[Rfam]
Shown here is a 115-nucleotide RNA from Arenimonas metalli, a member of the family "Xanthomonadaceae sRNA asX1".

RNA sequence: CACCUGCCGCGGCCAACGCCGGGGGGCGUCGACCAGACUGAACAGGGGCUGGUCAGGCGCGCGACAGGGAUGCCAGGGUCGGGAACUCCCGGGGGGGAGUUCCCGACCCUUUUUU
Numbered sequence: 001c002a003c004c005u006g007c008c009g010c011g012g013c014c015a016a017c018g019c020c021g022g023g024g025g026g027c028g029u030c031g032a033c034c035a036g037a038c039u040g041a042a043c044a045g046g047g048g049c050u051g052g053u054c055a056g057g058c059g060c061g062c063g064a065c066a067g068g069g070a071u072g073c074c075a076g077g078g079u080c081g082g083g084a085a086c087u088c089c090c091g092g093g094g095g096g097g098a099g100u101u102c103c104c105g106a107c108c109c110u111u112u113u114u115u
Stems, first nucleotide, its partner, number of pairs: 003068004008063004012058002016029005031054006038046002075110016
For this family Rfam cites "Genome-wide transcriptome analysis of the plant pathogen Xanthomonas identifies sRNAs with putative virulence functions" (Schmidtke et al., Nucleic Acids Res, 2011).